[Rfam]
FMN riboswitch aptamer (RFN element): a 178-nucleotide RNA from Pseudoxanthomonas spadix. Pairs were carried over by alignment from the consensus structure, which is taken from published work. The match comes from Rfam's covariance-model search (80 bits). Lineage of the source: Bacteria > Pseudomonadota > Gammaproteobacteria > Lysobacterales > Pseudoxanthomonas spadix. Its family is annotated with FMN binding in the Gene Ontology.

RNA sequence: GAACGUCUUCAGGGCGGGGUGCGAUUCCCCACCGGCGGUAGGUGCGCCUGGCGCGCACGAGCCCGCGAGCGCUGCGAGGGGGUGACGCCCACGCAGGUCAGCAGAUCCGGUCCGAUGCCGGAGCCGACGGUUGGUGCCGCAUCCCGGCGCCAGAAAGUCCGGAUGAAAGAAGACGACC
Numbered sequence: 001g002a003a004c005g006u007c008u009u010c011a012g013g014g015c016g017g018g019g020u021g022c023g024a025u026u027c028c029c030c031a032c033c034g035g036c037g038g039u040a041g042g043u044g045c046g047c048c049u050g051g052c053g054c055g056c057a058c059g060a061g062c063c064c065g066c067g068a069g070c071g072c073u074g075c076g077a078g079g080g081g082g083u084g085a086c087g088c089c090c091a092c093g094c095a096g097g098u099c100a101g102c103a104g105a106u107c108c109g110g111u112c113c114g115a116u117g118c119c120g121g122a123g124c125c126g127a128c129g130g131u132u133g134g135u136g137c138c139g140c141a142u143c144c145c146g147g148c149g150c151c152a153g154a155a156a157g158u159c160c161g162g163a164u165g166a167a168a169g170a171a172g173a174c175g176a177c178c
Stems, first nucleotide, its partner, number of pairs: 004175007017029003033126002035066004061124002069102002106122005128161003